[Rfam]
RNA sequence: UGGUAACACGGUCGGUGCUAAAGGGUCUUGCCCUGAUAGCACCUGUCAGUAGCCGUUGGGCAGGACCCUUUAGCACCGGCCCGUGUUACGAA
Numbered sequence: 001u002g003g004u005a006a007c008a009c010g011g012u013c014g015g016u017g018c019u020a021a022a023g024g025g026u027c028u029u030g031c032c033c034u035g036a037u038a039g040c041a042c043c044u045g046u047c048a049g050u051a052g053c054c055g056u057u058g059g060g061c062a063g064g065a066c067c068c069u070u071u072a073g074c075a076c077c078g079g080c081c082c083g084u085g086u087u088a089c090g091a092a
Base pairs, nucleotide, nucleotide: 003089004088005087006086007085008084009083010082011080012079013078014077015076016075017074018073019072020071021070022069023068024067025066026065028064029063032059033058036056037055043049044048

Overview:
The family of this 92-nucleotide sequence from Sorghum bicolor is "MIR5387 microRNA precursor family". Lineage of the source: Eukaryota > Euphyllophyta > Spermatophyta > Andropogonodae > Sorghum. Pairs were carried over by alignment from the consensus structure, which was predicted with RNAalifold.